[Rfam]
RNA sequence: UUGCUUGUUGCUAUGGGCGCUACCUCGGUGCCUAGACUGUGCUUUCGAAUCGGAGUCAGGUACCUGAAGUAGCGCGCGUAGCGACUGGCC
Numbered sequence: 001u002u003g004c005u006u007g008u009u010g011c012u013a014u015g016g017g018c019g020c021u022a023c024c025u026c027g028g029u030g031c032c033u034a035g036a037c038u039g040u041g042c043u044u045u046c047g048a049a050u051c052g053g054a055g056u057c058a059g060g061u062a063c064c065u066g067a068a069g070u071a072g073c074g075c076g077c078g079u080a081g082c083g084a085c086u087g088g089c090c
Stems, first nucleotide, its partner, number of pairs: 009083004014078001017075006030061003035057004
Overview:
A member of the RNA family "mir-275 microRNA precursor family" from Callosobruchus maculatus, 90 nucleotides long. The literature on the family includes a 2007 paper in Nucleic Acids Res by Winter et al., "Anopheles gambiae miRNAs as actors of defence reaction against Plasmodium invasion". Lineage of the source: Eukaryota > Bilateria > Allotriocarida > Eumetabola > Callosobruchus. Rfam links the family to the GO terms miRNA-mediated post-transcriptional gene silencing and RISC complex. The base pairs follow the family's consensus structure, which was predicted with RNAalifold. A search with the family's covariance model found it, with a score of 66 bits.